[Rfam]
RNA sequence: AGGACUAUACUUUCAGGGAUCAUUUUUAUAAUGAUUGACUAGGAGAUGUGAUUUGAAAGUGAUACGGUUCCCUGAUCACGAUGAAGAACUGUGAUGUAUUCUUCUGAGGGUGAAUCAGAUUCAAGCUAAUGGUUUCCCAGGCUUUAGUCAUUGAUGAACAUUCUCUCUUUCUUAUGAAGCAUAGUUAGAAGGGUACAUGAUCUGAGUGAU
Numbered sequence: 001a002g003g004a005c006u007a008u009a010c011u012u013u014c015a016g017g018g019a020u021c022a023u024u025u026u027u028a029u030a031a032u033g034a035u036u037g038a039c040u041a042g043g044a045g046a047u048g049u050g051a052u053u054u055g056a057a058a059g060u061g062a063u064a065c066g067g068u069u070c071c072c073u074g075a076u077c078a079c080g081a082u083g084a085a086g087a088a089c090u091g092u093g094a095u096g097u098a099u100u101c102u103u104c105u106g107a108g109g110g111u112g113a114a115u116c117a118g119a120u121u122c123a124a125g126c127u128a129a130u131g132g133u134u135u136c137c138c139a140g141g142c143u144u145u146a147g148u149c150a151u152u153g154a155u156g157a158a159c160a161u162u163c164u165c166u167c168u169u170u171c172u173u174a175u176g177a178a179g180c181a182u183a184g185u186u187a188g189a190a191g192g193g194u195a196c197a198u199g200a201u202c203u204g205a206g207u208g209a210u
Stems, first nucleotide, its partner, number of pairs: 002040002005037001008033002011030001015027004048065003053062002075210005094198012108161001110159001118149004124143004130139003164184001166181001168179004
Overview
The family of this 210-nucleotide RNA sequence from Hemibagrus wyckioides is "Small nucleolar RNA U3". From the family's description: Small nucleolar RNAs (snoRNAs) are involved in the processing and modification of rRNA in the nucleolus. There are two main classes of snoRNAs: the box C/D class, and the box H/ACA class. U3 snoRNA is a member of the box C/D class. For this family Rfam cites "Comparative analysis of eukaryotic U3 snoRNA" (Marz and Stadler, RNA Biol, 2010). The match comes from Rfam's covariance-model search (107 bits).